[Rfam]
RNA sequence: UACGUUGUUUAACGGCUUUUUAAGGUUUCCGAGAGAUAAAUGAGGCUAUCCAGUUUCCUCUGGAUGCCGAGUGGCUCCUAUCCACUCUGUUUGACGCCUCCCUGUUAUGACUUAGAGCCGCCUCUGGCGGCUCGAUUUUU
Numbered sequence: 001u002a003c004g005u006u007g008u009u010u011a012a013c014g015g016c017u018u019u020u021u022a023a024g025g026u027u028u029c030c031g032a033g034a035g036a037u038a039a040a041u042g043a044g045g046c047u048a049u050c051c052a053g054u055u056u057c058c059u060c061u062g063g064a065u066g067c068c069g070a071g072u073g074g075c076u077c078c079u080a081u082c083c084a085c086u087c088u089g090u091u092u093g094a095c096g097c098c099u100c101c102c103u104g105u106u107a108u109g110a111c112u113u114a115g116a117g118c119c120g121c122c123u124c125u126g127g128c129g130g131c132u133c134g135a136u137u138u139u140u
Stems, first nucleotide, its partner, number of pairs: 001044001003042002005015002021036001026031001048065006069087006093106004113135001115133008
Alphaproteobacterial sRNA BjrC1505: a 140-nucleotide sequence from Microvirga aerophila.
It scores 84 bits against the family's covariance model.
On this family, see Madhugiri et al., RNA Biol 2012: "Small RNAs of the Bradyrhizobium/Rhodopseudomonas lineage and their analysis".